[Rfam]
Shown here is a 104-nucleotide RNA sequence from Roseobacter ponti, a member of the family "Guanidine-I riboswitch aptamer". A reference for the family is Barrick et al. (2004), "New RNA motifs suggest an expanded scope for riboswitches in bacterial genetic control", Proc Natl Acad Sci U S A.
RNA sequence: GAACAAGGAAACUAGGGUUCCGCCGCCUGCGGGUCAGGUCCGAGAGUUUCCGCUGCUCCAGCAAAUUCUGCAGCAGUACACGGCGGGGGAAAAUCCCGGGAGAG
Numbered sequence: 001g002a003a004c005a006a007g008g009a010a011a012c013u014a015g016g017g018u019u020c021c022g023c024c025g026c027c028u029g030c031g032g033g034u035c036a037g038g039u040c041c042g043a044g045a046g047u048u049u050c051c052g053c054u055g056c057u058c059c060a061g062c063a064a065a066u067u068c069u070g071c072a073g074c075a076g077u078a079c080a081c082g083g084c085g086g087g088g089g090a091a092a093a094u095c096c097c098g099g100g101a102g103a104g
Base pairs, nucleotide, nucleotide: 007051008050009049010048011047012046015041016040020038021037022035023032024031025030052077053076054075055074056073057072059070060069061068079099081102085097086096087095